Annotation: The family of this 78-nucleotide RNA sequence from Asaccharospora irregularis is "c-di-GMP-I riboswitch aptamer". The source organism's lineage runs through Bacteria, Bacillati, Bacillota, Asaccharospora and Asaccharospora irregularis. Gene Ontology term of the family: cyclic-di-GMP binding. The literature on the family includes a 2007 paper in Nucleic Acids Res by Weinberg et al., "Identification of 22 candidate structured RNAs in bacteria using the CMfinder comparative genomics pipeline". From the family's description: GEMM was predicted in a large-scale screen for bacterial structured RNA regulatory elements.

RNA sequence: AAAUUUAAUUAGCAAACCCGAAGUGAUUCGGCGACGCAAAGCUAGAGGGACUUUUUUAAAAGUUAGCCAGUUGCAUAA
Numbered sequence: 001a002a003a004u005u006u007a008a009u010u011a012g013c014a015a016a017c018c019c020g021a022a023g024u025g026a027u028u029c030g031g032c033g034a035c036g037c038a039a040a041g042c043u044a045g046a047g048g049g050a051c052u053u054u055u056u057u058a059a060a061a062g063u064u065a066g067c068c069a070g071u072u073g074c075a076u077a078a
Base pairs, nucleotide, nucleotide: 012037013036018031019030020029021028022027040072041071042070043069047068048067049064050063051062052061053060054059